[Rfam]
RNA: Alphacoronavirus 5'UTR
RNA sequence: GACUUAAAGUACAUAUCUAUCUAUAGAUAGAGUGUGUUCUUUCUAGACCUCGUGUCUCAUCCCCUCAACUAAACGAAAUUUUUCUCUCCGUGUGCAUGUGUCAUGCACCGUGAGAAGUUAUUGAAAUUUCACUAGGUUACUUAAGUGUGGGUUCAAGUGUCGUGUGCCCUAGUGGUCAUAGUGCGGUGUUCCGUCACCUACUAUACACUACAAGCACCCUCUGGCAGUUCCGUCUGUUAGAGUGUGUGGAUAUCAAGUUCUGUCUUGGUUGAAACCGAUAACUGUCCCUCAUGGCUCGUAACCAUCUUUCUUUGGCUU
Numbered sequence: 001g002a003c004u005u006a007a008a009g010u011a012c013a014u015a016u017c018u019a020u021c022u023a024u025a026g027a028u029a030g031a032g033u034g035u036g037u038u039c040u041u042u043c044u045a046g047a048c049c050u051c052g053u054g055u056c057u058c059a060u061c062c063c064c065u066c067a068a069c070u071a072a073a074c075g076a077a078a079u080u081u082u083u084c085u086c087u088c089c090g091u092g093u094g095c096a097u098g099u100g101u102c103a104u105g106c107a108c109c110g111u112g113a114g115a116a117g118u119u120a121u122u123g124a125a126a127u128u129u130c131a132c133u134a135g136g137u138u139a140c141u142u143a144a145g146u147g148u149g150g151g152u153u154c155a156a157g158u159g160u161c162g163u164g165u166g167c168c169c170u171a172g173u174g175g176u177c178a179u180a181g182u183g184c185g186g187u188g189u190u191c192c193g194u195c196a197c198c199u200a201c202u203a204u205a206c207a208c209u210a211c212a213a214g215c216a217c218c219c220u221c222u223g224g225c226a227g228u229u230c231c232g233u234c235u236g237u238u239a240g241a242g243u244g245u246g247u248g249g250a251u252a253u254c255a256a257g258u259u260c261u262g263u264c265u266u267g268g269u270u271g272a273a274a275c276c277g278a279u280a281a282c283u284g285u286c287c288c289u290c291a292u293g294g295c296u297c298g299u300a301a302c303c304a305u306c307u308u309u310c311u312u313u314g315g316c317u318u
Stems, first nucleotide, its partner, number of pairs: 006042004012036003016031006045057004075130007083117001085115004092108006137301003145292003149288003154284001156283002158280005171209004181201002185198004219242009246275002252269006